Overview:
A member of the RNA family "U4 spliceosomal RNA" from Stegodyphus mimosarum, 159 nucleotides long. A search with the family's covariance model found it, with a score of 51 bits. Gene Ontology terms of the family: U4 snRNP and spliceosomal tri-snRNP complex assembly. U4 small nuclear RNA (U4 snRNA) is a component of the major U2-dependent spliceosome. The organism belongs to Stegodyphus, within Eukaryota. The family's RNA type in Rfam is spliceosomal small nuclear RNA. The base pairs follow the family's consensus structure, which is taken from published work.
[Rfam]
RNA sequence: GGCUUUCCGCAGUGGCAGUGUCGUAGCCAAUGAAGUGCUUCCGAGGCCUGACUAUUGCGAGACGAAAACGUUUAUGCCAGAGGCCUAAGAGCUGUCAACCUCUAGAACUCCUUUUCCCCAAAUACGAAAGAUUCUUGAAUUUUAAAAUUUUAAUUUUAA
Number, nucleotide and partner (000 for none) at each position: 001g000002g000003c000004u000005u000006u000007c000008c000009g000010c000011a000012g000013u000014g000015g000016c000017a000018g000019u000020g052021u051022c050023g049024u000025a000026g047027c046028c045029a000030a000031u000032g000033a000034a000035g041036u000037g000038c000039u000040u000041c035042c000043g000044a000045g028046g027047c026048c000049u023050g022051a021052c020053u000054a000055u000056u000057g000058c000059g000060a000061g000062a000063c000064g000065a000066a000067a000068a000069c000070g000071u000072u000073u000074a000075u000076g000077c000078c000079a000080g000081a000082g000083g000084c000085c000086u137087a136088a135089g133090a132091g000092c130093u129094g000095u127096c126097a000098a000099c000100c000101u000102c000103u000104a000105g000106a000107a000108c000109u000110c000111c000112u000113u000114u000115u000116c000117c000118c000119c000120a000121a000122a000123u000124a000125c000126g096127a095128a000129a093130g092131a000132u090133u089134c000135u088136u087137g086138a000139a000140u000141u000142u000143u000144a000145a000146a000147a000148u000149u000150u159151u158152a157153a000154u000155u000156u000157u152158a151159a150